The family of this 73-nucleotide RNA sequence from Sphingomonas sp. CFBP 13720 is "tRNA". The base pairs follow the family's consensus structure, which is taken from published work. On this family, see Hou, Trends Biochem Sci 1993: "The tertiary structure of tRNA and the development of the genetic code". Rfam classes the family as a transfer RNA. NCBI's taxonomy places the organism under Bacteria, Pseudomonadati, Sphingomonadales, Sphingomonadaceae, Sphingomonas. The match comes from Rfam's covariance-model search (73 bits).
RNA sequence: GGGCCCGUAGCUCAGUUGGUAGAGCAACGGACUUUUAAUCUGUAGGUCUCGGGUUCGAAUCCCGACGGGCUCA
Numbered sequence: 001g002g003g004c005c006c007g008u009a010g011c012u013c014a015g016u017u018g019g020u021a022g023a024g025c026a027a028c029g030g031a032c033u034u035u036u037a038a039u040c041u042g043u044a045g046g047u048c049u050c051g052g053g054u055u056c057g058a059a060u061c062c063c064g065a066c067g068g069g070c071u072c073a
Stems, first nucleotide, its partner, number of pairs: 001072007010025004027043005049065005
Dot-bracket structure: (((((((..((((........)))).(((((.......))))).....(((((.......)))))))))))).